Background: The family of this 286-nucleotide RNA sequence from Gulo gulo is "HIF-1 alpha IRES". Rfam links the family to the GO term ribosome binding. NCBI's taxonomy places the organism under Eukaryota, Opisthokonta, Dipnotetrapodomorpha, Mammalia, Gulo. The family's consensus secondary structure was predicted with RNAfold. It is annotated as an internal ribosome entry site. About the family: This family represents the hypoxia-inducible factor 1-alpha internal ribosome entry site. HIF-1a is a subunit of the HIF-1 transcription factor, which induces transcription of several genes involved in the cellular response to hypoxia. The HIF-1a IRES allows translation to be maintained under hypoxic cell conditions that inhibit cap-dependent translation.
[Rfam]
RNA sequence: CUCGUCUGAGGGGACGCGAGAAUUGGCCUCGUCGCCGCUUCGGCCAGUGCGUUGGGCUGGGCCUUGACAAGCAGCCGGAGGGGAGGCUCUUCGGAGCCGGACCUAGACCCUUGCGAUUGCCUCCUGCUCCUCCUGCCUGCGUUUUACGAGGGGUUUCCCGCCUUGCACUCCCGCCUCUGGACGUGCCUCUCCUUCUCUCCCCGCGUGUGGAGGGAACGAGCUCUUAGGCCGGAGCGAGCCUGGGGGCGGCCGGCCGUGAAGGCUUCGCGGGGACCGAUUCGCCAUG
Numbered sequence: 001c002u003c004g005u006c007u008g009a010g011g012g013g014a015c016g017c018g019a020g021a022a023u024u025g026g027c028c029u030c031g032u033c034g035c036c037g038c039u040u041c042g043g044c045c046a047g048u049g050c051g052u053u054g055g056g057c058u059g060g061g062c063c064u065u066g067a068c069a070a071g072c073a074g075c076c077g078g079a080g081g082g083g084a085g086g087c088u089c090u091u092c093g094g095a096g097c098c099g100g101a102c103c104u105a106g107a108c109c110c111u112u113g114c115g116a117u118u119g120c121c122u123c124c125u126g127c128u129c130c131u132c133c134u135g136c137c138u139g140c141g142u143u144u145u146a147c148g149a150g151g152g153g154u155u156u157c158c159c160g161c162c163u164u165g166c167a168c169u170c171c172c173g174c175c176u177c178u179g180g181a182c183g184u185g186c187c188u189c190u191c192c193u194u195c196u197c198u199c200c201c202c203g204c205g206u207g208u209g210g211a212g213g214g215a216a217c218g219a220g221c222u223c224u225u226a227g228g229c230c231g232g233a234g235c236g237a238g239c240c241u242g243g244g245g246g247c248g249g250c251c252g253g254c255c256g257u258g259a260a261g262g263c264u265u266c267g268c269g270g271g272g273a274c275c276g277a278u279u280c281g282c283c284a285u286g
Base pairs, nucleotide, nucleotide: 001013002012003011016032017031018030019029020028034062035061036060083156084155085154087153130152131151132150134148184219188215189214190213196211197210198209230253232251234250235249